[Rfam]
RNA sequence: UGCCAACAUCAAGAGAAGAGUAAAACUCUCGCCAACCUGCUGCUCCAGUAAGGUGGUACAAAAAGAUGAGGUCAUUCGACAAUGAUAGGAGUGUCA
Numbered sequence: 001u002g003c004c005a006a007c008a009u010c011a012a013g014a015g016a017a018g019a020g021u022a023a024a025a026c027u028c029u030c031g032c033c034a035a036c037c038u039g040c041u042g043c044u045c046c047a048g049u050a051a052g053g054u055g056g057u058a059c060a061a062a063a064a065g066a067u068g069a070g071g072u073c074a075u076u077c078g079a080c081a082a083u084g085a086u087a088g089g090a091g092u093g094u095c096a
Stems, first nucleotide, its partner, number of pairs: 007068004015030001017029005031057003036053003039049003044091001046089001071080003

The family of this 96-nucleotide sequence is "SAM-I/IV (S-adenosyl methionine) riboswitch aptamer". The sequence is in the family's curated seed alignment. Its family is annotated with S-adenosylmethionine metabolic process and regulation of gene expression in the Gene Ontology. The family's consensus secondary structure is taken from published work. Clan: SAM clan. A reference for the family is Weinberg et al. (2008), "The aptamer core of SAM-IV riboswitches mimics the ligand-binding site of SAM-I riboswitches", RNA.